[Rfam]
RNA sequence: ACACCAUCCAGAGCGGCUGAGAGUCCUGGCUCGACGACGCCGCAGCAACCCCCCGAGCCCGGGCGAGGGUGCUAACGCCAGGUCGAUGGAGU
Dot-bracket structure: ((.(((((....(((((...(((..[[[[)))......)))))((((.(((.((.......)).)..))))))...(]]]]..)))))).))

SAM riboswitch aptamer (S box leader): a 92-nucleotide sequence from Kineococcus aurantiacus. NCBI's taxonomy places the organism under Bacteria, Bacillati, Actinomycetota, Actinomycetes, Kineococcus.